[Rfam]
RNA sequence: GAAUAAGGGCGCAUGGUGGAUGCCUAGGGUCUGAGAGGCGAUGAAGGACGUGGUAAGCUGCGAUAAGCUACGGGGAGCUGCACACGAGCGUUAUAUCCGUAGAUUUCCGAAUGGGACAACCUAAUAUACUGAAGGUAUAUUACCCGCCGCAAGGCGGGAGCCAACCCCGAGAACUGAAACAUCUAAGUACCGGGAGGAAAAGAAAACAACAGUGAUUCCCCAAGUAGUGGCGAGCGAAAAGGGAACAGCCCAAACCGAGUCGGCGUGCCGAUUCGGGGUUAUAGGACUGCAUUUAGAAAGUGUUAUCAAACUGAAUCAUCUGGAAAGAUGAGCCAUAGCAGGUGAUAGCCCUGUAGGUACAAAUUAACAUGGACGAGCAGUAUCCUGAGUAAUGCGGGACCGGAGGAAUCUUGCAUGAAUUUGCCAGCACCAUCUGGUAAGGCUAAAUACUCCUCAGACACCGAUAGUGAACCAGUACCGUAAGGGAAAGGUGAAAAGCACCCCGAACAGGGGAGUGAAAUAGUACCUGAAACCGUGCGCCUACAAG
Numbered sequence: 001g002a003a004u005a006a007g008g009g010c011g012c013a014u015g016g017u018g019g020a021u022g023c024c025u026a027g028g029g030u031c032u033g034a035g036a037g038g039c040g041a042u043g044a045a046g047g048a049c050g051u052g053g054u055a056a057g058c059u060g061c062g063a064u065a066a067g068c069u070a071c072g073g074g075g076a077g078c079u080g081c082a083c084a085c086g087a088g089c090g091u092u093a094u095a096u097c098c099g100u101a102g103a104u105u106u107c108c109g110a111a112u113g114g115g116a117c118a119a120c121c122u123a124a125u126a127u128a129c130u131g132a133a134g135g136u137a138u139a140u141u142a143c144c145c146g147c148c149g150c151a152a153g154g155c156g157g158g159a160g161c162c163a164a165c166c167c168c169g170a171g172a173a174c175u176g177a178a179a180c181a182u183c184u185a186a187g188u189a190c191c192g193g194g195a196g197g198a199a200a201a202g203a204a205a206a207c208a209a210c211a212g213u214g215a216u217u218c219c220c221c222a223a224g225u226a227g228u229g230g231c232g233a234g235c236g237a238a239a240a241g242g243g244a245a246c247a248g249c250c251c252a253a254a255c256c257g258a259g260u261c262g263g264c265g266u267g268c269c270g271a272u273u274c275g276g277g278g279u280u281a282u283a284g285g286a287c288u289g290c291a292u293u294u295a296g297a298a299a300g301u302g303u304u305a306u307c308a309a310a311c312u313g314a315a316u317c318a319u320c321u322g323g324a325a326a327g328a329u330g331a332g333c334c335a336u337a338g339c340a341g342g343u344g345a346u347a348g349c350c351c352u353g354u355a356g357g358u359a360c361a362a363a364u365u366a367a368c369a370u371g372g373a374c375g376a377g378c379a380g381u382a383u384c385c386u387g388a389g390u391a392a393u394g395c396g397g398g399a400c401c402g403g404a405g406g407a408a409u410c411u412u413g414c415a416u417g418a419a420u421u422u423g424c425c426a427g428c429a430c431c432a433u434c435u436g437g438u439a440a441g442g443c444u445a446a447a448u449a450c451u452c453c454u455c456a457g458a459c460a461c462c463g464a465u466a467g468u469g470a471a472c473c474a475g476u477a478c479c480g481u482a483a484g485g486g487a488a489a490g491g492u493g494a495a496a497a498g499c500a501c502c503c504c505g506a507a508c509a510g511g512g513g514a515g516u517g518a519a520a521u522a523g524u525a526c527c528u529g530a531a532a533c534c535g536u537g538c539g540c541c542u543a544c545a546a547g
Stems, first nucleotide, its partner, number of pairs: 007542010022527001023491002027462002029459007036451002038161002046108003049062003068102007077089003113122003123141007143158006165196001166194004176183002206213002216447001217244004227235002247444004255276007283386003287380004300370006310358003316331005334338001340352003392416008423438005478485002501513004

The family of this 547-nucleotide part of an RNA from Sediminibacterium sp. Gen4 is "Bacterial large subunit ribosomal RNA". The base pairs follow the family's consensus structure, which is taken from published work. Rfam links the family to the GO terms structural constituent of ribosome and ribosome. Lineage of the source: Bacteria > Bacteroidota > Chitinophagia > Chitinophagales > Sediminibacterium. The match comes from Rfam's covariance-model search (2698 bits).